[Rfam]
RNA sequence: UAUAUUUAUGGGAAUGAAGUUCUCCCCUAGCAGUAUUUGCUAAAACCGCUUUUUCUAGAGCUGAUGACUUCUGUGAGUAU
Numbered sequence: 001u002a003u004a005u006u007u008a009u010g011g012g013a014a015u016g017a018a019g020u021u022c023u024c025c026c027c028u029a030g031c032a033g034u035a036u037u038u039g040c041u042a043a044a045a046c047c048g049c050u051u052u053u054u055c056u057a058g059a060g061c062u063g064a065u066g067a068c069u070u071c072u073g074u075g076a077g078u079a080u
Stems, first nucleotide, its partner, number of pairs: 010026004016071006048061004
Source information: Rfam assigns this 80-nucleotide RNA from Acetoanaerobium sticklandii to the family "Fluoride riboswitch aptamer (crcB RNA motif)". The match comes from Rfam's covariance-model search (45 bits). NCBI's taxonomy places the organism under Bacteria, Bacillota, Clostridia, Filifactoraceae, Acetoanaerobium sticklandii.